[Rfam]
Rfam assigns this 132-nucleotide RNA from Megalops atlanticus to the family "Small nucleolar RNA SNORA69". It scores 76 bits against the family's covariance model. U69 is a member of the H/ACA class of small nucleolar RNAs (snoRNAs) which act as guides in the the modification of uridines to pseudouridines. The family's consensus secondary structure was predicted with PFOLD.

RNA sequence: AAAGCAGGUUGCAAUUACAGUGCUUCAUUACGUGGGAGUACUGCCAUUAUCCUGCUGAAAGUAAUUACUGCUGUAGAGUAACAGCCUCGUCACGCCUCGCGUUCACGAGGAUGCUCUGUAACAGUGACACAA
Numbered sequence: 001a002a003a004g005c006a007g008g009u010u011g012c013a014a015u016u017a018c019a020g021u022g023c024u025u026c027a028u029u030a031c032g033u034g035g036g037a038g039u040a041c042u043g044c045c046a047u048u049a050u051c052c053u054g055c056u057g058a059a060a061g062u063a064a065u066u067a068c069u070g071c072u073g074u075a076g077a078g079u080a081a082c083a084g085c086c087u088c089g090u091c092a093c094g095c096c097u098c099g100c101g102u103u104c105a106c107g108a109g110g111a112u113g114c115u116c117u118g119u120a121a122c123a124g125u126g127a128c129a130c131a132a
Stems, first nucleotide, its partner, number of pairs: 003056006018043009066126005072120005082113002085110006